[Rfam]
The family of this 120-nucleotide RNA from Streptomyces pratensis is "Streptomyces-metH RNA". The source organism's lineage runs through Bacteria, Actinomycetes, Streptomycetaceae, Streptomyces and Streptomyces pratensis. The family's RNA type in Rfam is small RNA.
RNA sequence: CAGUCCGCCCCGUGGGACACGACGACCGGCCCGGGCGCGUCCCGGCUACGCUGGCCGCGUGCCCCCUCCACAGAAGGGCGCAAAGCCGACAGCCGUCGCAUCCCAGGGAGAACAUCCAUG
Numbered sequence: 001c002a003g004u005c006c007g008c009c010c011c012g013u014g015g016g017a018c019a020c021g022a023c024g025a026c027c028g029g030c031c032c033g034g035g036c037g038c039g040u041c042c043c044g045g046c047u048a049c050g051c052u053g054g055c056c057g058c059g060u061g062c063c064c065c066c067u068c069c070a071c072a073g074a075a076g077g078g079c080g081c082a083a084a085g086c087c088g089a090c091a092g093c094c095g096u097c098g099c100a101u102c103c104c105a106g107g108g109a110g111a112a113c114a115u116c117c118a119u120g
Stems, first nucleotide, its partner, number of pairs: 060082003065077003085099002088097003